[Rfam]
RNA sequence: UCGUCAGGCUCAGUCCCCUCCCGAUAAACCUCAAAAUAGGGGGUUAUCUGGGGGAUCGGUGGCACUU
Numbered sequence: 001u002c003g004u005c006a007g008g009c010u011c012a013g014u015c016c017c018c019u020c021c022c023g024a025u026a027a028a029c030c031u032c033a034a035a036a037u038a039g040g041g042g043g044u045u046a047u048c049u050g051g052g053g054g055a056u057c058g059g060u061g062g063c064a065c066u067u
Stems, first nucleotide, its partner, number of pairs: 003065002008060001010058001013056007023047001026045002030041003
The record is a 67-nucleotide sequence from Rattus norvegicus, which matches "mir-484 microRNA precursor family" in Rfam. The source organism's lineage runs through Eukaryota, Eutheria, Boreoeutheria, Murinae and Rattus. The literature on the family includes a 2007 paper in Cancer Res by Lui et al., "Patterns of known and novel small RNAs in human cervical cancer". It scores 54 bits against the family's covariance model.